RNA: tRNA
RNA sequence: GCCCGGAUAGCUCAGUCGGUAGAGCGUGAGGCUUUUAAGACCAUCUUAGAAACCUUAAGGCCGUGGGUUCGAGCCCCACUCCGGGCG
Numbered sequence: 001g002c003c004c005g006g007a008u009a010g011c012u013c014a015g016u017c018g019g020u021a022g023a024g025c026g027u028g029a030g031g032c033u034u035u036u037a038a039g040a041c042c043a044u045c046u047u048a049g050a051a052a053c054c055u056u057a058a059g060g061c062c063g064u065g066g067g068u069u070c071g072a073g074c075c076c077c078a079c080u081c082c083g084g085g086c087g
Stems, first nucleotide, its partner, number of pairs: 001086007010025004027057005063079005